The family of this 113-nucleotide RNA from Mandrillus leucophaeus is "Y RNA".
RNA sequence: UGUUGGCCCAAAGGCAGUGAGUUAUCUCGAUUGAUUGCUCACAGUCAGUUACAGAUUUAAGUCCUUGUUCUACUCGUUCCCCUCUUCUCACCGCUGCACUUGACUAAUCUUAA
Dot-bracket structure: .(((((.(.((..((.(((((......................(..((.....................))..)............)))))....))..))).))))).....
Numbered sequence: 001u002g003u004u005g006g007c008c009c010a011a012a013g014g015c016a017g018u019g020a021g022u023u024a025u026c027u028c029g030a031u032u033g034a035u036u037g038c039u040c041a042c043a044g045u046c047a048g049u050u051a052c053a054g055a056u057u058u059a060a061g062u063c064c065u066u067g068u069u070c071u072a073c074u075c076g077u078u079c080c081c082c083u084c085u086u087c088u089c090a091c092c093g094c095u096g097c098a099c100u101u102g103a104c105u106a107a108u109c110u111u112a113a
Stems, first nucleotide, its partner, number of pairs: 002108005008102001010101002014097002017091005044074001047071002
From the family's description: Y RNAs are components of the Ro ribonucleoprotein particle (Ro RNP), in association with Ro60 and La proteins. The organism belongs to Mandrillus, within Eukaryota. A search with the family's covariance model found it, with a score of 54 bits.